Small nucleolar RNA SNORD30: a 70-nucleotide RNA sequence from Ameiurus melas. NCBI's taxonomy places the organism under Eukaryota, Bilateria, Neopterygii, Characiphysae, Ameiurus. The family is grouped with related families in Rfam's "SNORD30 clan". Pairs were carried over by alignment from the consensus structure. Rfam 15.1 lists 367 matches to the family in 268 species. For this family Rfam cites "A mammalian gene with introns instead of exons generating stable RNA products" (Tycowski et al., Nature, 1996). It scores 47 bits against the family's covariance model.
[Rfam]
RNA sequence: UCUUAUGAUGAUUUACUUUGGAAUCUCGUUCGUCUGAACUCCUGUUGAGAAUUUUUGAAUACUGAUGAUG
Numbered sequence: 001u002c003u004u005a006u007g008a009u010g011a012u013u014u015a016c017u018u019u020g021g022a023a024u025c026u027c028g029u030u031c032g033u034c035u036g037a038a039c040u041c042c043u044g045u046u047g048a049g050a051a052u053u054u055u056u057g058a059a060u061a062c063u064g065a066u067g068a069u070g
Stems, first nucleotide, its partner, number of pairs: 024050005031044002